[Rfam]
RNA sequence: GGAAGAGCGACGUCCCUGGUGGGGCGCCCGGACUUCAAAUCCGGCGGGAGGCGCGUCGCGCGUCUCCGGUGAGUUCGACUCUCACCUCUUCC
Numbered sequence: 001g002g003a004a005g006a007g008c009g010a011c012g013u014c015c016c017u018g019g020u021g022g023g024g025c026g027c028c029c030g031g032a033c034u035u036c037a038a039a040u041c042c043g044g045c046g047g048g049a050g051g052c053g054c055g056u057c058g059c060g061c062g063u064c065u066c067c068g069g070u071g072a073g074u075u076c077g078a079c080u081c082u083c084a085c086c087u088c089u090u091c092c
Stems, first nucleotide, its partner, number of pairs: 001092007009085001011026006028044005047067005070084004